[Rfam]
RNA: Ribosomal protein L10 leader
Organism: Pristimantibacillus lignocellulolyticus
RNA sequence: UAACUUUGAAUAUGCAUACCGUAGACAGUAGGUGCCCUAGUGGCUUAAAUAUCCUACCGAGGUGUUAUGAUAGAGCGUUUAUAGCAUUCAAUACUAUUGAAUAGCGAACGGAAUCAUGGCCCUUGCUAAUCUGCGAGGGCCUUUCUCAUGCAUCGA
Numbered sequence: 001u002a003a004c005u006u007u008g009a010a011u012a013u014g015c016a017u018a019c020c021g022u023a024g025a026c027a028g029u030a031g032g033u034g035c036c037c038u039a040g041u042g043g044c045u046u047a048a049a050u051a052u053c054c055u056a057c058c059g060a061g062g063u064g065u066u067a068u069g070a071u072a073g074a075g076c077g078u079u080u081a082u083a084g085c086a087u088u089c090a091a092u093a094c095u096a097u098u099g100a101a102u103a104g105c106g107a108a109c110g111g112a113a114u115c116a117u118g119g120c121c122c123u124u125g126c127u128a129a130u131c132u133g134c135g136a137g138g139g140c141c142u143u144u145c146u147c148a149u150g151c152a153u154c155g156a
Stems, first nucleotide, its partner, number of pairs: 028057005034044003118141009